[Rfam]
RNA sequence: UCCCCGGCUAGGCAUGGACUAGCUACCCAUGCCGAAAAGGCGGAACCCUUGCCGCCCUGCCGAGGGAGACCAAAAGAGCGU
Numbered sequence: 001u002c003c004c005c006g007g008c009u010a011g012g013c014a015u016g017g018a019c020u021a022g023c024u025a026c027c028c029a030u031g032c033c034g035a036a037a038a039g040g041c042g043g044a045a046c047c048c049u050u051g052c053c054g055c056c057c058u059g060c061c062g063a064g065g066g067a068g069a070c071c072a073a074a075a076g077a078g079c080g081u
Base pairs, nucleotide, nucleotide: 001066002065003064005062006061007060008059011033012032013031014030015029016028017027039056040055041054042053043052048080050078
Rfam assigns this 81-nucleotide sequence to the family "int-alpA RNA". Rfam's curators put it in the seed alignment. The family's RNA type in Rfam is small RNA. Rfam's curators write: Acidobacteria (1 example), Planctomycetes (1 example), Proteobacteria.